Plastid-psbA-3 3UTR RNA: a 57-nucleotide RNA sequence from Mikania micrantha. The source organism's lineage runs through Eukaryota, Embryophyta, Asteroideae, Eupatorieae and Mikania. About the family: Plastid psbA-3 is a non-coding RNA (ncRNA) present in plastids. It was identified in inverted repeat sequences in the 3 prime untranslate region (3UTR) of photosystem II quinone-binding protein (psbA).
RNA sequence: AAAGAAGCAAUAGCGCUCUCUUAGUAAAACAAGAGGGAAGCUAUUGCUCCUUUUUGA
Numbered sequence: 001a002a003a004g005a006a007g008c009a010a011u012a013g014c015g016c017u018c019u020c021u022u023a024g025u026a027a028a029a030c031a032a033g034a035g036g037g038a039a040g041c042u043a044u045u046g047c048u049c050c051u052u053u054u055u056g057a
Stems, first nucleotide, its partner, number of pairs: 001053004006048009018035005